[Rfam]
Nucleotides: 109
Base pairs, nucleotide, nucleotide: 003107004106005105006104007103008102013041015040016039017038021031022030023029025083026082027081028080042075043074044073045072047071048070049068051066052065053064054063079101084098085097086096087095088094
Number, partner (000 for none) and nucleotide at each position: 001000a002000a003107c004106u005105u006104a007103u008102c009000a010000a011000g012000a013041g014000a015040g016039g017038c018000g019000g020000a021031g022030g023029g024000a025083c026082u027081g028080g029023u030022c031021c032000u033000a034000u035000g036000a037000u038017g039016c040015c041013c042075g043074g044073c045072a046000a047071c048070c049068u050000g051066c052065a053064a054063g055000c056000a057000g058000c059000a060000a061000u062000g063054c064053u065052u066051g067000g068049a069000a070048g071047g072045u073044g074043c075042u076000a077000c078000u079101u080028c081027c082026a083025g084098c085097a086096a087095a088094c089000a090000a091000a092000g093000a094088g095087u096086u097085u098084g099000a100000g101079a102008g103007a104006u105005a106004a107003g108000a109000a